[Rfam]
RNA sequence: GUUAGACGAAGUUGGUUUGUGACCGUCACUAACGGGCAGUAGUCUAUGGUUUGCUCGUUUUGAUGAUCGCAAAAUUAACUCGCUUGAC
Numbered sequence: 001g002u003u004a005g006a007c008g009a010a011g012u013u014g015g016u017u018u019g020u021g022a023c024c025g026u027c028a029c030u031a032a033c034g035g036g037c038a039g040u041a042g043u044c045u046a047u048g049g050u051u052u053g054c055u056c057g058u059u060u061u062g063a064u065g066a067u068c069g070c071a072a073a074a075u076u077a078a079c080u081c082g083c084u085u086g087a088c
Stems, first nucleotide, its partner, number of pairs: 002087004007082003012077001014075001016073007024065002031059008